[Rfam]
RNA sequence: GGGUUUCACUCCUGGAUUUACCAUUUGCCACCGAAAAAGGCGGCGUGUUUUGGUGUCUGAUCCAGCCUGCGCCGAAUCGGGAGCACCAUCUGCGUAGGCUGGGAGCGUGACUCCUGUUUGAGGCUUUCGCCGCCUACGGUCUUGGAUAGCCCCCACAUCGCAGGGACCCCAAUUAGUCGGCGCGCUCGGGGAGCGCGCCU
Numbered sequence: 001g002g003g004u005u006u007c008a009c010u011c012c013u014g015g016a017u018u019u020a021c022c023a024u025u026u027g028c029c030a031c032c033g034a035a036a037a038a039g040g041c042g043g044c045g046u047g048u049u050u051u052g053g054u055g056u057c058u059g060a061u062c063c064a065g066c067c068u069g070c071g072c073c074g075a076a077u078c079g080g081g082a083g084c085a086c087c088a089u090c091u092g093c094g095u096a097g098g099c100u101g102g103g104a105g106c107g108u109g110a111c112u113c114c115u116g117u118u119u120g121a122g123g124c125u126u127u128c129g130c131c132g133c134c135u136a137c138g139g140u141c142u143u144g145g146a147u148a149g150c151c152c153c154c155a156c157a158u159c160g161c162a163g164g165g166a167c168c169c170c171a172a173u174u175a176g177u178c179g180g181c182g183c184g185c186u187c188g189g190g191g192a193g194c195g196c197g198c199c200u
Stems, first nucleotide, its partner, number of pairs: 002169002005166003011160001013157001022047002027044003031040001051088006057080005063074001092156001094154001097151004116147010179199008
Shown here is a 200-nucleotide sequence from Halopseudomonas xinjiangensis, a member of the family "Pseudomonas sRNA P27".